[Rfam]
RNA sequence: GUCUUGUCUGUGAUGUAUUUAAACACAAAUGUCUGAACAAAUGAUUUCUGUGAUUUCUUCAUGUUUACUGAGACAAGAC
Numbered sequence: 001g002u003c004u005u006g007u008c009u010g011u012g013a014u015g016u017a018u019u020u021a022a023a024c025a026c027a028a029a030u031g032u033c034u035g036a037a038c039a040a041a042u043g044a045u046u047u048c049u050g051u052g053a054u055u056u057c058u059u060c061a062u063g064u065u066u067a068c069u070g071a072g073a074c075a076a077g078a079c
Base pairs, nucleotide, nucleotide: 002078003077004076005075006074007073008072
RNA: Small nucleolar RNA SNORD72
Organism: Channa argus